[Rfam]
RNA sequence: GCUUAUUCUCAGGGCGGGGUGAAAGUCCCCACCGGCGGUAAAUUGUAUUGCGACGAUAUAGUCACGUCGGUGGUGCAAAAGCCCGCGAGCGCUCAUAUUGUUUCUCUUAUCCAAGAGAGCAAGGUAGAGGUCAGCAGACCCGGUGUAAUUCCGGGGCCGACGGUUAUAGUCCGGAUGGGAGAGAGUAACG
Numbered sequence: 001g002c003u004u005a006u007u008c009u010c011a012g013g014g015c016g017g018g019g020u021g022a023a024a025g026u027c028c029c030c031a032c033c034g035g036c037g038g039u040a041a042a043u044u045g046u047a048u049u050g051c052g053a054c055g056a057u058a059u060a061g062u063c064a065c066g067u068c069g070g071u072g073g074u075g076c077a078a079a080a081g082c083c084c085g086c087g088a089g090c091g092c093u094c095a096u097a098u099u100g101u102u103u104c105u106c107u108u109a110u111c112c113a114a115g116a117g118a119g120c121a122a123g124g125u126a127g128a129g130g131u132c133a134g135c136a137g138a139c140c141c142g143g144u145g146u147a148a149u150u151c152c153g154g155g156g157c158c159g160a161c162g163g164u165u166a167u168a169g170u171c172c173g174g175a176u177g178g179g180a181g182a183g184a185g186u187a188a189c190g
Stems, first nucleotide, its partner, number of pairs: 003188008017029003031170002033159002035086004089135002139155005161173003
Rfam assigns this 190-nucleotide sequence from Yersinia pestis to the family "FMN riboswitch aptamer (RFN element)". The base pairs follow the family's consensus structure, which is taken from published work. The RFN element is a highly conserved domain that is found frequently in the 5'-untranslated regions of prokaryotic mRNAs that encode for flavin mononucleotide (FMN) biosynthesis and transport proteins. This element is a metabolite-dependent riboswitch that directly binds FMN in the absence of proteins. Lineage of the source: Bacteria > Pseudomonadati > Pseudomonadota > Enterobacterales > Yersinia pestis.